The record is a 90-nucleotide sequence from Microvirgula aerodenitrificans, which matches "Neisseria metabolic switch regulator b (RcoF1/NgncR163)" in Rfam. Its family is annotated with regulation of translation, ncRNA-mediated, protein binding and tricarboxylic acid cycle in the Gene Ontology. Lineage of the source: Bacteria > Pseudomonadati > Neisseriales > Aquaspirillaceae > Microvirgula. By type it is a small RNA. The family's consensus secondary structure was predicted with RNAfold. On this family, see Bauer et al., Microbiology 2017: "The sibling sRNAs NgncR_162 and NgncR_163 of Neisseria gonorrhoeae participate in the expression control of metabolic, transport and regulatory proteins". Sibling sRNA described and independently named in three publications. NgncR163 is N. gonorrhoeae while the others are N. meningitidis RNAs. RcoF1 stands for: RNA regulating colonization factor 1.
RNA sequence: UCGCUUCGAACCGCAGUCGGUUCGAUGUAGUUUCUCCUCUAUUUCUCCUUUGCAGACUUCUCGCCACGCUUCUCCGCGUGGCGUUUUUUU
Numbered sequence: 001u002c003g004c005u006u007c008g009a010a011c012c013g014c015a016g017u018c019g020g021u022u023c024g025a026u027g028u029a030g031u032u033u034c035u036c037c038u039c040u041a042u043u044u045c046u047c048c049u050u051u052g053c054a055g056a057c058u059u060c061u062c063g064c065c066a067c068g069c070u071u072c073u074c075c076g077c078g079u080g081g082c083g084u085u086u087u088u089u090u
Base pairs, nucleotide, nucleotide: 003028004027006025007024008023009022010021011020038056039055040054042052062083063082064081065080066079067078068077069076